[Rfam]
RNA: Glycine riboswitch aptamer
Organism: Microbispora rosea
RNA sequence: CGACCUCGUGCGGGAGAGACCCCUGGCCGUUUCAGGGGCGCCGAAGGAGCAAACCUCCCCGGAAUCUCUCAGGCAUCCGUACCGCACGGACGAG
Numbered sequence: 001c002g003a004c005c006u007c008g009u010g011c012g013g014g015a016g017a018g019a020c021c022c023c024u025g026g027c028c029g030u031u032u033c034a035g036g037g038g039c040g041c042c043g044a045a046g047g048a049g050c051a052a053a054c055c056u057c058c059c060c061g062g063a064a065u066c067u068c069u070c071a072g073g074c075a076u077c078c079g080u081a082c083c084g085c086a087c088g089g090a091c092g093a094g
Stems, first nucleotide, its partner, number of pairs: 006089008020038007040074003043070002047068003054061001